RNA sequence: ACGAUGUUCCGCUGUGUUCUAUAAGGAUGCAUGAGCAUUUG
Dot-bracket structure: ..(((((((...((((((.......)))))).)))))))..

Ribosomal protein L19 leader: a 41-nucleotide RNA from Sporolactobacillus inulinus. A reference for the family is Zengel and Lindahl (1994), "Diverse mechanisms for regulating ribosomal protein synthesis in Escherichia coli", Prog Nucleic Acid Res Mol Biol. The family's RNA type in Rfam is cis-regulatory leader.